[Rfam]
Rfam assigns this 249-nucleotide RNA from Chrysochloris asiatica to the family "Small nucleolar RNA SNORA53". Rfam's curators write: The snoRNA ACA53 belongs to the H/ACA family of pseudouridylation guide snoRNAs. Pairs were carried over by alignment from the consensus structure, which was predicted with RNAalifold. By type it is an H/ACA-box small nucleolar RNA.
RNA sequence: AACAUGCUUCCUUAGAUCCACCUUUGUGGGUGUCACUCUUGAACUGAGUUCUACUUGUAAACUUUUUGUUUCUCGUAGUUCCAGUCAAUGAAACAUCCGGCAACUUUUUUGGUUGUAUAGUCAAAGGUGCUUGAGUCAUUGGCAUGUGAGAGAAAUAUACCUGCAUGUGAGUCUUAGAUUCUGAUAGAAAUGGCAUGCAGUUAUGCUGCUAUUUUUUUCCUGUCAGGACUUGACUUCUGUGCGGACACU
Numbered sequence: 001a002a003c004a005u006g007c008u009u010c011c012u013u014a015g016a017u018c019c020a021c022c023u024u025u026g027u028g029g030g031u032g033u034c035a036c037u038c039u040u041g042a043a044c045u046g047a048g049u050u051c052u053a054c055u056u057g058u059a060a061a062c063u064u065u066u067u068g069u070u071u072c073u074c075g076u077a078g079u080u081c082c083a084g085u086c087a088a089u090g091a092a093a094c095a096u097c098c099g100g101c102a103a104c105u106u107u108u109u110u111g112g113u114u115g116u117a118u119a120g121u122c123a124a125a126g127g128u129g130c131u132u133g134a135g136u137c138a139u140u141g142g143c144a145u146g147u148g149a150g151a152g153a154a155a156u157a158u159a160c161c162u163g164c165a166u167g168u169g170a171g172u173c174u175u176a177g178a179u180u181c182u183g184a185u186a187g188a189a190a191u192g193g194c195a196u197g198c199a200g201u202u203a204u205g206c207u208g209c210u211a212u213u214u215u216u217u218u219c220c221u222g223u224c225a226g227g228a229c230u231u232g233a234c235u236u237c238u239g240u241g242c243g244g245a246c247a248c249u
Base pairs, nucleotide, nucleotide: 002147003146004145005144006143007142008141011135012134013133014132015131019129020128021127022126023125024124025123026122027099028098029097030096031095032094037091038090040088043085044084045083046082048081051078052077053076054075057072059071060070061069062068100116101115102114103113104112105111161244162243163242164241165240170235171234172233173232180227181226182225183224184223185222186221187220192218193217195215197209198208199207